[Rfam]
RNA: Pyrrolysine insertion sequence mttB
RNA sequence: UAGGCAGACAGCAAAGUGUCUGAUUUGCAAACAGGUCUUGAAAAGACUGUAACUUACCUGUUACCGAUGCUGGCAGGCGCCAACAUCAUCUAUGGUUCAG
Numbered sequence: 001u002a003g004g005c006a007g008a009c010a011g012c013a014a015a016g017u018g019u020c021u022g023a024u025u026u027g028c029a030a031a032c033a034g035g036u037c038u039u040g041a042a043a044a045g046a047c048u049g050u051a052a053c054u055u056a057c058c059u060g061u062u063a064c065c066g067a068u069g070c071u072g073g074c075a076g077g078c079g080c081c082a083a084c085a086u087c088a089u090c091u092a093u094g095g096u097u098c099a100g
Stems, first nucleotide, its partner, number of pairs: 003012001033062002077098001079096002